Overview:
The record is a 46-nucleotide sequence from Caulifigura coniformis, which matches "Acido-Lenti-1 RNA" in Rfam. The base pairs follow the family's consensus structure, which is taken from published work. It is annotated as a small RNA. The organism belongs to Caulifigura, within Bacteria.
[Rfam]
RNA sequence: CCGGGGGCUUACGCCCCCGGCUAUGUCGUGCCGCUCCUUCGGAGCU
Numbered sequence: 001c002c003g004g005g006g007g008c009u010u011a012c013g014c015c016c017c018c019g020g021c022u023a024u025g026u027c028g029u030g031c032c033g034c035u036c037c038u039u040c041g042g043a044g045c046u
Base pairs, nucleotide, nucleotide: 001020002019003018004017005016006015007014008013033045034044035043036042037041